[Rfam]
RNA sequence: GGUCUCGUGGCCCAAUGGUUAAGGCGCUUGACUACGAAUCAAGAGAUUCCAGGUUCGACUCUUGGCGGGAUCG
Numbered sequence: 001g002g003u004c005u006c007g008u009g010g011c012c013c014a015a016u017g018g019u020u021a022a023g024g025c026g027c028u029u030g031a032c033u034a035c036g037a038a039u040c041a042a043g044a045g046a047u048u049c050c051a052g053g054u055u056c057g058a059c060u061c062u063u064g065g066c067g068g069g070a071u072c073g
Stems, first nucleotide, its partner, number of pairs: 001072007010025003027043005049065005
Dot-bracket structure: (((((((..(((..........))).(((((.......))))).....(((((.......)))))))))))).
RNA: tRNA